[Rfam]
Annotation:
Small nucleolar RNA snR60/Z15/Z230/Z193/J17: a 93-nucleotide RNA from Polarella glacialis. The family's RNA type in Rfam is C/D-box small nucleolar RNA. The family has 23 seed sequences and 3,592 matches in Rfam 15.1. The family is grouped with related families in Rfam's "SNORD77 clan". The match comes from Rfam's covariance-model search (53 bits). Gene Ontology terms of the family: RNA processing and nucleolus. On this family, see Lowe and Eddy, Science 1999: "A computational screen for methylation guide snoRNAs in yeast".

RNA sequence: UCGGGGGCGAUGAGGAUCACUUCAAUGCAUAGUUCACUCGGACAAAGCGUGACGAUCACAAUAAAUGUCUUUCGCUCCUAGCUGAGCACUUUG
Numbered sequence: 001u002c003g004g005g006g007g008c009g010a011u012g013a014g015g016a017u018c019a020c021u022u023c024a025a026u027g028c029a030u031a032g033u034u035c036a037c038u039c040g041g042a043c044a045a046a047g048c049g050u051g052a053c054g055a056u057c058a059c060a061a062u063a064a065a066u067g068u069c070u071u072u073c074g075c076u077c078c079u080a081g082c083u084g085a086g087c088a089c090u091u092u093g
Stems, first nucleotide, its partner, number of pairs: 004090002007087002
Dot-bracket structure: ...((.((.............................................................................)).))...